RNA sequence: CCUGGUCAGUGAUGAUGAUUUAACUUUGCCUGAUUUUCACCAUGAGGGCAAUUUGUCACUACCUCAUCUGAGACCACU
Numbered sequence: 001c002c003u004g005g006u007c008a009g010u011g012a013u014g015a016u017g018a019u020u021u022a023a024c025u026u027u028g029c030c031u032g033a034u035u036u037u038c039a040c041c042a043u044g045a046g047g048g049c050a051a052u053u054u055g056u057c058a059c060u061a062c063c064u065c066a067u068c069u070g071a072g073a074c075c076a077c078u
Stems, first nucleotide, its partner, number of pairs: 003076005